A member of the RNA family "S10-Clostridia ribosomal protein leader" from Bacillus manliponensis, 104 nucleotides long. The organism belongs to Bacillus, within Bacteria. For this family Rfam cites "Discovery of 20 novel ribosomal leader candidates in bacteria and archaea" (Eckert and Weinberg, BMC Microbiol, 2020).

RNA sequence: UGACUGCGAUGAAGUGGAAGGUUGCUGACACACCCGGCCGCUUUGCCAUGGCAUGGUGUGAGGAAAUUUCCAUGGAGAAGGUCUAUUUUAGAAAUAGGCGAACG
Numbered sequence: 001u002g003a004c005u006g007c008g009a010u011g012a013a014g015u016g017g018a019a020g021g022u023u024g025c026u027g028a029c030a031c032a033c034c035c036g037g038c039c040g041c042u043u044u045g046c047c048a049u050g051g052c053a054u055g056g057u058g059u060g061a062g063g064a065a066a067u068u069u070c071c072a073u074g075g076a077g078a079a080g081g082u083c084u085a086u087u088u089u090a091g092a093a094a095u096a097g098g099c100g101a102a103c104g
Stems, first nucleotide, its partner, number of pairs: 014073003019069003025062002028059004080103001082101002087098003